[Rfam]
RNA sequence: UCGUUAAGUGAUGAUGUGACAAACAAAGUGUCAUGUCAUCACGCUUUAUCACGAACACCUCAUUAUCACGUCAUCACCUUUAGUGAAGUGUCAGUGAUGUGUCCAGGAUUGAACGUAAUGACGUGGCACUUCAUGUGUCACAUUAUCAUUUAACAGAA
Numbered sequence: 001u002c003g004u005u006a007a008g009u010g011a012u013g014a015u016g017u018g019a020c021a022a023a024c025a026a027a028g029u030g031u032c033a034u035g036u037c038a039u040c041a042c043g044c045u046u047u048a049u050c051a052c053g054a055a056c057a058c059c060u061c062a063u064u065a066u067c068a069c070g071u072c073a074u075c076a077c078c079u080u081u082a083g084u085g086a087a088g089u090g091u092c093a094g095u096g097a098u099g100u101g102u103c104c105a106g107g108a109u110u111g112a113a114c115g116u117a118a119u120g121a122c123g124u125g126g127c128a129c130u131u132c133a134u135g136u137g138u139c140a141c142a143u144u145a146u147c148a149u150u151u152a153a154c155a156g157a158a
Stems, first nucleotide, its partner, number of pairs: 001156001003154019023134001026131014041116003045112002048109003055102004071086004